[Rfam]
Nucleotides: 088
Base pairs, nucleotide, nucleotide: 002079003078004077005076006075007074008073014048015047016046017045019043020042029038030037031036050065051064052063053062054061
Number, partner (000 for none) and nucleotide at each position: 001000u002079g003078c004077c005076g006075g007074g008073u009000u010000g011000a012000u013000a014048g015047c016046u017045c018000c019043u020042a021000a022000u023000a024000c025000a026000a027000u028000a029038c030037c031036c032000u033000c034000a035000c036031g037030g038029g039000g040000a041000a042020u043019a044000a045017g046016a047015g048014c049000a050065g051064c052063g053062c054061u055000c056000c057000a058000g059000u060000u061054a062053g063052c064051g065050u066000a067000g068000u069000u070000g071000a072000g073008a074007c075006c076005c077004g078003g079002c080000u081000u082000u083000u084000c085000u086000c087000a088000u
Record summary: The record is an 88-nucleotide RNA from Bilophila wadsworthia, which matches "sRNA-Xcc1" in Rfam. It scores 57 bits against the family's covariance model. The family has 74 seed sequences and 421 matches in Rfam 15.1.